RNA sequence: CAUUUAUAGUGUAAAAAGUAUAAAUUUUUAUUUCAUGCUUGCAUGAAGGGAAAAAUUUGUAUUUUUUACACCCCUUCUCACGAGCCUAUAAGCUCUCAAAUGGAGAGCGAUAUGCCAGUGAGAUGACGAAUUGGGGGAGCACUUAUGUGCGGAGCAAUUCGUAUAAAUG
Numbered sequence: 001c002a003u004u005u006a007u008a009g010u011g012u013a014a015a016a017a018g019u020a021u022a023a024a025u026u027u028u029u030a031u032u033u034c035a036u037g038c039u040u041g042c043a044u045g046a047a048g049g050g051a052a053a054a055a056u057u058u059g060u061a062u063u064u065u066u067u068a069c070a071c072c073c074c075u076u077c078u079c080a081c082g083a084g085c086c087u088a089u090a091a092g093c094u095c096u097c098a099a100a101u102g103g104a105g106a107g108c109g110a111u112a113u114g115c116c117a118g119u120g121a122g123a124u125g126a127c128g129a130a131u132u133g134g135g136g137g138a139g140c141a142c143u144u145a146u147g148u149g150c151g152g153a154g155c156a157a158u159u160c161g162u163a164u165a166a167a168u169g
Stems, first nucleotide, its partner, number of pairs: 001169007010070004017063013031049002033046005074125001076123006084115002087112001092108006128160006139150004
RNA: Clostridiales-1 RNA
Organism: Eubacterium sp. AF36-5BH